[Rfam]
RNA: mir-1 microRNA precursor family
Organism: Zootermopsis nevadensis
RNA sequence: GCGCAAGUUCCUUACUUCCUUACUUCUCAUAUUGCUUUUUGAAACUUAUGGAAUGUAAAGAAGUAUGGAGCGAACGC
Numbered sequence: 001g002c003g004c005a006a007g008u009u010c011c012u013u014a015c016u017u018c019c020u021u022a023c024u025u026c027u028c029a030u031a032u033u034g035c036u037u038u039u040u041g042a043a044a045c046u047u048a049u050g051g052a053a054u055g056u057a058a059a060g061a062a063g064u065a066u067g068g069a070g071c072g073a074a075c076g077c
Base pairs, nucleotide, nucleotide: 007071008070009069010068011067013065014064015063016062017061018060020058021057022056023055025053027051028050029049030048031047